RNA: Bacterial large subunit ribosomal RNA, nucleotides 2693 to 2956
Organism: Oligella urethralis
RNA sequence: GGAUACUUGACGGAGGCUGCUCCUAGUACGAGAGGACCGGAGUGGACGUACCGCUGGUGUACGGGUUGUCAUGCCAAUGGCAUUGCCCGGUAGCUAUGUACGGAAGAGAUAACCGCUGAAGGCAUCUAAGCGGGAAACUCGUCUGAAGAUAAGGUAUCCCGGAGGCUAGACCUCCCUGAAGGGUCGUUCGAGACCAGGACGUUGAUAGGCUGGGUGUGGAAGUGCAGCAAUGCAUGUAGCUAACCAGUACUAAUUGCCCGUGCG
Numbered sequence: 001g002g003a004u005a006c007u008u009g010a011c012g013g014a015g016g017c018u019g020c021u022c023c024u025a026g027u028a029c030g031a032g033a034g035g036a037c038c039g040g041a042g043u044g045g046a047c048g049u050a051c052c053g054c055u056g057g058u059g060u061a062c063g064g065g066u067u068g069u070c071a072u073g074c075c076a077a078u079g080g081c082a083u084u085g086c087c088c089g090g091u092a093g094c095u096a097u098g099u100a101c102g103g104a105a106g107a108g109a110u111a112a113c114c115g116c117u118g119a120a121g122g123c124a125u126c127u128a129a130g131c132g133g134g135a136a137a138c139u140c141g142u143c144u145g146a147a148g149a150u151a152a153g154g155u156a157u158c159c160c161g162g163a164g165g166c167u168a169g170a171c172c173u174c175c176c177u178g179a180a181g182g183g184u185c186g187u188u189c190g191a192g193a194c195c196a197g198g199a200c201g202u203u204g205a206u207a208g209g210c211u212g213g214g215u216g217u218g219g220a221a222g223u224g225c226a227g228c229a230a231u232g233c234a235u236g237u238a239g240c241u242a243a244c245c246a247g248u249a250c251u252a253a254u255u256g257c258c259c260g261u262g263c264g
Base pairs, nucleotide, nucleotide: 001159002158003157004156005155006154007153008152011145012144013143014142017045018044019043020042021041022040023039047102048101049100050099051098055096056095057094062089063088064087065086066085067082068081069080070079071078072077106140107139108138113133114132115131116130117129162176164174178261181259182258183257184256185201186200187199188198189197206252207251208250209248210247211246212245213244216240222235223234224233225232226231